[Rfam]
RNA sequence: AAUAUUCCUCGUUAGGUGAGGCUUCUGCAUAGAUCACACGCCACUGCCCGGAAAUGUCGAGAGACGCCUACGGGUUAACAGGUACUGCCGGAUUAAGGCUUUACUUAAUGUGGCUGAGGGUGGUUCCUCUAGCUAUGUACGUGCCAAAGCUCAAACGGGUGGGGACAAUA
Number, nucleotide and partner (000 for none) at each position: 001a000002a000003u000004a000005u000006u165007c164008c163009u162010c161011g156012u155013u096014a000015g151016g150017u149018g000019a000020g145021g144022c143023u000024u000025c141026u139027g138028c137029a136030u135031a134032g133033a000034u000035c000036a000037c000038a000039c000040g114041c113042c112043a111044c110045u000046g075047c074048c073049c072050g071051g000052a000053a000054a000055u066056g065057u064058c063059g000060a000061g000062a000063g058064a057065c056066g055067c000068c000069u000070a000071c050072g049073g048074g047075u046076u000077a000078a000079c000080a000081g105082g104083u103084a102085c000086u000087g099088c098089c097090g000091g000092a000093u000094u000095a000096a013097g089098g088099c087100u000101u000102u084103a083104c082105u081106u000107a000108a000109u000110g044111u043112g042113g041114c040115u000116g129117a128118g127119g000120g000121u000122g000123g000124u000125u000126c000127c118128u117129c116130u000131a000132g000133c032134u031135a030136u029137g028138u027139a026140c000141g025142u000143g022144c021145c020146a000147a000148a000149g017150c016151u015152c000153a000154a000155a012156c011157g000158g000159g000160u000161g010162g009163g008164g007165a006166c000167a000168a000169u000170a000
This 170-nucleotide sequence from Pelotomaculum schinkii belongs to the Rfam family "M-box riboswitch aptamer (ykoK leader)".
NCBI's taxonomy places the organism under Bacteria, Bacillati, Bacillota, Clostridia, Pelotomaculum.
It scores 138 bits against the family's covariance model.